RNA sequence: CUAGGUUGAGAAAUAUUACCGAAGACAGUAGGUGGCGUAUGCCUUAAUUUCCUGCCGAGGAUGAAUAUGUGAAAGCAUACAAUUAUCCCUCUAUGUCUAAGGUGACGUAGAGUUUUUUGCGUUUAACG
Numbered sequence: 001c002u003a004g005g006u007u008g009a010g011a012a013a014u015a016u017u018a019c020c021g022a023a024g025a026c027a028g029u030a031g032g033u034g035g036c037g038u039a040u041g042c043c044u045u046a047a048u049u050u051c052c053u054g055c056c057g058a059g060g061a062u063g064a065a066u067a068u069g070u071g072a073a074a075g076c077a078u079a080c081a082a083u084u085a086u087c088c089c090u091c092u093a094u095g096u097c098u099a100a101g102g103u104g105a106c107g108u109a110g111a112g113u114u115u116u117u118u119g120c121g122u123u124u125a126a127c128g
Stems, first nucleotide, its partner, number of pairs: 028055005034043003089112009
This 128-nucleotide sequence from Carnobacterium sp. 17-4 belongs to the Rfam family "Ribosomal protein L10 leader". A search with the family's covariance model found it, with a score of 79 bits. About the family: This family is a putative r-protein leader autoregulatory structure found in B. subtilis and other low-GC Gram-positive bacteria. It is located in the 5' untranslated regions of mRNAs encoding ribosomal proteins L10 and L12 (rplJ-rplL). A Rho-independent transcription terminator structure that is probably involved in regulation is included at the 3' end.